Rfam assigns this 223-nucleotide sequence from Sphingomonas kaistensis to the family "permuted transfer-messenger RNA".

RNA sequence: GCUGGUAGAGUGUAGGUAGAAAUAAGCAUUUCGGACCCGGGGGGCAGUACCCCGGCGCCUCCACCAGCAGCGGCGAAUUUUUCACGUCUCGCCGUUGCUGAUGGGGGCGAAACAGGAUCGACGGAUGUGGUAAAGUGCUUGCUGCCAGCGGGCUUGGAUCGGCCCUAAAACGGUCAUUCUCACAAGUGCCAACGAUAACGAGGCGCUCGCGAUUGCUGCGUAA
Numbered sequence: 001g002c003u004g005g006u007a008g009a010g011u012g013u014a015g016g017u018a019g020a021a022a023u024a025a026g027c028a029u030u031u032c033g034g035a036c037c038c039g040g041g042g043g044g045c046a047g048u049a050c051c052c053c054g055g056c057g058c059c060u061c062c063a064c065c066a067g068c069a070g071c072g073g074c075g076a077a078u079u080u081u082u083c084a085c086g087u088c089u090c091g092c093c094g095u096u097g098c099u100g101a102u103g104g105g106g107g108c109g110a111a112a113c114a115g116g117a118u119c120g121a122c123g124g125a126u127g128u129g130g131u132a133a134a135g136u137g138c139u140u141g142c143u144g145c146c147a148g149c150g151g152g153c154u155u156g157g158a159u160c161g162g163c164c165c166u167a168a169a170a171c172g173g174u175c176a177u178u179c180u181c182a183c184a185a186g187u188g189c190c191a192a193c194g195a196u197a198a199c200g201a202g203g204c205g206c207u208c209g210c211g212a213u214u215g216c217u218g219c220g221u222a223a
Stems, first nucleotide, its partner, number of pairs: 001149005015139004027127003031124003037055005056109007150165004
The family's RNA type in Rfam is non-coding RNA gene. Rfam describes the family as follows. Bacterial tmRNA, also known as 10Sa RNA or SsrA, is named for its dual tRNA and mRNA-like properties. Its role is to liberate the mRNA from a stalled ribosome. To accomplish this part of the tmRNA is used as a reading frame that ends in a translation stop signal. The broken mRNA is replaced in the ribosome by the tmRNA and translation of the tmRNA leads to addition of a proteolysis tag to the incomplete protein enabling recognition by a protease.